[Rfam]
RNA sequence: UUUAGUCUUCAAGGCAGGGUGAAAUUCCCGACCGGCGGUAAAGUCCGCAACCCACUAUUUUUGUAGUGGCUGAACCCGUAAUGGUACCGAUAGUUAUAGUCUAGAUGGGAGAAGUUAAUU
Numbered sequence: 001u002u003u004a005g006u007c008u009u010c011a012a013g014g015c016a017g018g019g020u021g022a023a024a025u026u027c028c029c030g031a032c033c034g035g036c037g038g039u040a041a042a043g044u045c046c047g048c049a050a051c052c053c054a055c056u057a058u059u060u061u062u063g064u065a066g067u068g069g070c071u072g073a074a075c076c077c078g079u080a081a082u083g084g085u086a087c088c089g090a091u092a093g094u095u096a097u098a099g100u101c102u103a104g105a106u107g108g109g110a111g112a113a114g115u116u117a118a119u120u
Base pairs, nucleotide, nucleotide: 003118005116007114008113009112010111017029018028019027031100032099033089034088035048036047037046038045043087044086052069053068074085075084076083091103092102093101
Dot-bracket structure: ..(.(.((((......(((.......))).[[((((((....[[))))...((..............))....(((......)))]])).(((.....]]))).......)))).).)..
A member of the RNA family "FMN riboswitch aptamer (RFN element)" from Lactobacillus pasteurii, 120 nucleotides long. The family's consensus secondary structure is taken from published work. NCBI's taxonomy places the organism under Bacteria, Bacillati, Lactobacillales, Lactobacillus, Lactobacillus pasteurii.